[Rfam]
RNA: 6S / SsrS RNA
Organism: Clostridium putrefaciens
RNA sequence: AUAAAUCUGAGGUAUUUGUGAAGCUCUUAUUUUGAACCUACAUUAUUAAAAUGGGAGUUUAAAAUAUAAUUGCGAAUUUAACUUAUAAGCCCUAAUGUAUGACAUUCACCUAGGCAAAGUUUUUGAAACAAUAUUGAAGACACCCACCUAUCGGAUAGAUAGGUGUCAAAAUUAGGGCAACGGUAUUUUGGAUUAUUA
Numbered sequence: 001a002u003a004a005a006u007c008u009g010a011g012g013u014a015u016u017u018g019u020g021a022a023g024c025u026c027u028u029a030u031u032u033u034g035a036a037c038c039u040a041c042a043u044u045a046u047u048a049a050a051a052u053g054g055g056a057g058u059u060u061a062a063a064a065u066a067u068a069a070u071u072g073c074g075a076a077u078u079u080a081a082c083u084u085a086u087a088a089g090c091c092c093u094a095a096u097g098u099a100u101g102a103c104a105u106u107c108a109c110c111u112a113g114g115c116a117a118a119g120u121u122u123u124u125g126a127a128a129c130a131a132u133a134u135u136g137a138a139g140a141c142a143c144c145c146a147c148c149u150a151u152c153g154g155a156u157a158g159a160u161a162g163g164u165g166u167c168a169a170a171a172u173u174a175g176g177g178c179a180a181c182g183g184u185a186u187u188u189u190g191g192a193u194u195a196u197u198a
Stems, first nucleotide, its partner, number of pairs: 004194012017182003031171002033168003036164003053145003057141004064135001066134003070131003